[Rfam]
RNA sequence: AGGAGAGGACGACCUCUCCCAACAGGGUACGCAUGACCAGGACGGCCUGG
Number, nucleotide and partner (000 for none) at each position: 001a000002g019003g018004a017005g016006a015007g014008g013009a000010c000011g000012a000013c008014c007015u006016c005017u004018c003019c002020c000021a000022a000023c000024a000025g000026g000027g000028u000029a000030c000031g000032c000033a000034u000035g000036a000037c050038c049039a048040g047041g046042a000043c000044g000045g000046c041047c040048u039049g038050g037

Description
Shown here is a 50-nucleotide sequence from Parvularcula marina, a member of the family "Guanidine-II riboswitch aptamer (mini-ykkC)". It scores 39 bits against the family's covariance model.